[Rfam]
RNA sequence: GCUGCGCCUAUCUCGACGGAGAGAAAACCGGGAACCCUUGCCCGGCUGGCGCGGCACCCUGAACCAAGGG
Numbered sequence: 001g002c003u004g005c006g007c008c009u010a011u012c013u014c015g016a017c018g019g020a021g022a023g024a025a026a027a028c029c030g031g032g033a034a035c036c037c038u039u040g041c042c043c044g045g046c047u048g049g050c051g052c053g054g055c056a057c058c059c060u061g062a063a064c065c066a067a068g069g070g
Base pairs, nucleotide, nucleotide: 001055002054003053004052005051006050007049008048011022012021013020014019028045029044030043031042032041035070036069037068038067039066040065
Dot-bracket structure: ((((((((..((((....)))).....(((((..[[[[[[)))))..)))))))).........]]]]]]
About this RNA:
int-alpA RNA: a 70-nucleotide RNA sequence from Candidatus Accumulibacter regalis. The base pairs follow the family's consensus structure, which is taken from published work. Rfam 15.1 lists 577 matches to the family in 491 species. A search with the family's covariance model found it, with a score of 69 bits. The organism belongs to Candidatus Accumulibacter, within Bacteria. Acidobacteria (1 example), Planctomycetes (1 example), Proteobacteria.